[Rfam]
RNA sequence: GCCAUCACAAAGGGGAGCUUUUGCUGAGAAUGAGAAUACUCUAAACCCUAGAACCUGAUAUUGUUAAAACAGUCGUAGGAAUUGUGUGGAUAGAAUAC
Numbered sequence: 001g002c003c004a005u006c007a008c009a010a011a012g013g014g015g016a017g018c019u020u021u022u023g024c025u026g027a028g029a030a031u032g033a034g035a036a037u038a039c040u041c042u043a044a045a046c047c048c049u050a051g052a053a054c055c056u057g058a059u060a061u062u063g064u065u066a067a068a069a070c071a072g073u074c075g076u077a078g079g080a081a082u083u084g085u086g087u088g089g090a091u092a093g094a095a096u097a098c
Stems, first nucleotide, its partner, number of pairs: 006086005011049004017024002032041003054079004060073004
TPP riboswitch aptamer (THI element): a 98-nucleotide sequence from Vagococcus vulneris. From the family's description: Vitamin B(1) in its active form thiamin pyrophosphate (TPP) is an essential coenzyme that is synthesised by coupling of pyrimidine and thiazole moieties in bacteria.